[Rfam]
RNA: sodF sRNA
Organism: Streptomyces sp. Ru87
RNA sequence: CCCUCCGCGUGAUCGUCUUCUCACCCUUCACCGGCGGGGCAGCGGAAGGCCCCCGCGCGUACGGACCGCGCGGGGGCCUUCC
Numbered sequence: 001c002c003c004u005c006c007g008c009g010u011g012a013u014c015g016u017c018u019u020c021u022c023a024c025c026c027u028u029c030a031c032c033g034g035c036g037g038g039g040c041a042g043c044g045g046a047a048g049g050c051c052c053c054c055g056c057g058c059g060u061a062c063g064g065a066c067c068g069c070g071c072g073g074g075g076g077c078c079u080u081c082c
Stems, first nucleotide, its partner, number of pairs: 001038003005034003009031004015025001044082016